[Rfam]
RNA sequence: AUCUUCUGGUAAUCGCGGUUUGUUUUUUAACAGGCUGAGGAAAGUCCAAGCUUGCACAGGCUGAGAUGCCUGUAGUGAUCGUACUUGCUGAAAAAAUAAGGCAAGGCACCAUUUUAUGGUGACGGCAGAUAAAAGAGCUAAGGUUUAUAGCUAUGCUCGAGUAGUCUUGAAAAGUGCCACAGUGACGAAGUAGUAUGGGAAACUGUACUAGUGGAACGCGGUAAACCCUGCGAGCAGGUAACCCAAACUUUGGUAGGGGCGCUUCAUGACGGAAAUGAACUAAUCAUGGGGGCGAGUAAUUUUUACUCGGAGAUAGAUGAUUACCACCGAUUUUAGCUUCCUGAGCUAAAUGACGUACGGAACGUGGCUUAUAGAG
Number, nucleotide and partner (000 for none) at each position: 001a000002u000003c000004u376005u375006c374007u000008g325009g324010u323011a322012a321013u320014c319015g000016c037017g036018g035019u034020u033021u032022g000023u000024u000025u000026u000027u000028u000029a000030a000031c000032a021033g020034g019035c018036u017037g016038a000039g000040g000041a000042a370043a369044g368045u000046c367047c366048a365049a000050g363051c238052u237053u236054g235055c234056a073057c072058a071059g070060g069061c068062u000063g000064a000065g000066a000067u000068g061069c060070c059071u058072g057073u056074a000075g000076u000077g000078a000079u233080c232081g231082u230083a229084c105085u104086u103087g102088c101089u100090g000091a000092a000093a000094a000095a000096a000097u000098a000099a000100g089101g088102c087103a086104a085105g084106g123107c121108a120109c119110c118111a117112u116113u000114u000115u000116a112117u111118g110119g109120u108121g107122a000123c106124g228125g227126c000127a167128g166129a165130u164131a000132a000133a000134a000135g158136a157137g156138c155139u000140a000141a000142g152143g151144u150145u000146u000147a000148u000149a000150g144151c143152u142153a000154u000155g138156c137157u136158c135159g000160a000161g000162u000163a000164g130165u129166c128167u127168u000169g000170a000171a000172a000173a000174g226175u225176g222177c221178c220179a000180c000181a000182g000183u000184g000185a000186c000187g000188a000189a000190g000191u210192a209193g208194u207195a206196u205197g204198g203199g000200a000201a000202a000203c198204u197205g196206u195207a194208c193209u192210a191211g000212u000213g000214g000215a000216a000217c000218g000219c000220g178221g177222u176223a000224a000225a175226c174227c125228c124229u083230g082231c081232g080233a079234g055235c054236a053237g052238g051239u000240a000241a000242c258243c257244c256245a000246a000247a000248c000249u000250u000251u000252g000253g000254u000255a000256g244257g243258g242259g000260c000261g000262c291263u290264u289265c288266a287267u286268g285269a000270c000271g000272g000273a000274a000275a000276u000277g000278a000279a000280c000281u000282a000283a000284u000285c268286a267287u266288g265289g264290g263291g262292g000293c309294g308295a307296g306297u305298a000299a000300u000301u000302u000303u000304u000305a297306c296307u295308c294309g293310g000311a000312g000313a000314u000315a000316g000317a000318u000319g014320a013321u012322u011323a010324c009325c008326a000327c000328c000329g000330a000331u000332u350333u349334u348335a347336g346337c345338u344339u000340c000341c000342u000343g000344a338345g337346c336347u335348a334349a333350a332351u000352g000353a000354c000355g000356u000357a000358c000359g000360g000361a000362a000363c050364g000365u048366g047367g046368c044369u043370u042371a000372u000373a000374g006375a005376g004
RNA: Bacterial RNase P class B